RNA sequence: GAGGAGGAGGCAGUUAAGACUUGCAGUGAUGUUUAGGAACGCUAAAGACAUGAACAUCACUUUAAGUCUGUGCUGGCUCUG
Numbered sequence: 001g002a003g004g005a006g007g008a009g010g011c012a013g014u015u016a017a018g019a020c021u022u023g024c025a026g027u028g029a030u031g032u033u034u035a036g037g038a039a040c041g042c043u044a045a046a047g048a049c050a051u052g053a054a055c056a057u058c059a060c061u062u063u064a065a066g067u068c069u070g071u072g073c074u075g076g077c078u079c080u081g
Stems, first nucleotide, its partner, number of pairs: 017069007026060010